RNA sequence: ACACGGGAAAGGAGGUGGUCCGAGAGAUGAAGUCUUUCUGGACGCGUGAGGUGACUGCCCGCUAGGCAGUCGUCCUUCCAGGGCGAACCUGCGACCGACGUCGCAGCAGCUGCCGGCACUACCUGGCAGUCACCCGACCCGCAGGUGCUCCGCGAACGUCCGGCGGAGGCGGCCCGGCUCAUCGAGCCGCGGCCACACCUGCGGGUCGUUCCAC
Numbered sequence: 001a002c003a004c005g006g007g008a009a010a011g012g013a014g015g016u017g018g019u020c021c022g023a024g025a026g027a028u029g030a031a032g033u034c035u036u037u038c039u040g041g042a043c044g045c046g047u048g049a050g051g052u053g054a055c056u057g058c059c060c061g062c063u064a065g066g067c068a069g070u071c072g073u074c075c076u077u078c079c080a081g082g083g084c085g086a087a088c089c090u091g092c093g094a095c096c097g098a099c100g101u102c103g104c105a106g107c108a109g110c111u112g113c114c115g116g117c118a119c120u121a122c123c124u125g126g127c128a129g130u131c132a133c134c135c136g137a138c139c140c141g142c143a144g145g146u147g148c149u150c151c152g153c154g155a156a157c158g159u160c161c162g163g164c165g166g167a168g169g170c171g172g173c174c175c176g177g178c179u180c181a182u183c184g185a186g187c188c189g190c191g192g193c194c195a196c197a198c199c200u201g202c203g204g205g206u207c208g209u210u211c212c213a214c
Base pairs, nucleotide, nucleotide: 014059015058016057017056018055019054061117062116063115065113067112069110070109135208136207137206138205139204140203141202142201143200144199145198146197147196148168149167150166151165152164153163

Rfam assigns this 214-nucleotide RNA sequence from Nocardioides sp. GY 10127 to the family "Actinobacteria sRNA Ms_IGR-5". Taxonomically the source falls in Nocardioides (Bacteria, Bacillati, Actinomycetes, Propionibacteriales).